[Rfam]
RNA: Small Cajal body specific RNA 11
Organism: Nothocercus julius
RNA sequence: GCGUCCUGACCUCGUCCCAUCUGUUCCCCCUCACCAGAGCUGUGGUAGGGGGCCUGGAGGUGGACGCAGAUCAACUGACCUCUCGUGUUAGGAGGGCUGCCAAAGACAUGUGCAUGCCCUUAAAGGCAAGAGAGGACACU
Numbered sequence: 001g002c003g004u005c006c007u008g009a010c011c012u013c014g015u016c017c018c019a020u021c022u023g024u025u026c027c028c029c030c031u032c033a034c035c036a037g038a039g040c041u042g043u044g045g046u047a048g049g050g051g052g053c054c055u056g057g058a059g060g061u062g063g064a065c066g067c068a069g070a071u072c073a074a075c076u077g078a079c080c081u082c083u084c085g086u087g088u089u090a091g092g093a094g095g096g097c098u099g100c101c102a103a104a105g106a107c108a109u110g111u112g113c114a115u116g117c118c119c120u121u122a123a124a125g126g127c128a129a130g131a132g133a134g135g136a137c138a139c140u
Stems, first nucleotide, its partner, number of pairs: 002066005010059001026052002029050003033046002079135006088125002092121006099113002101110002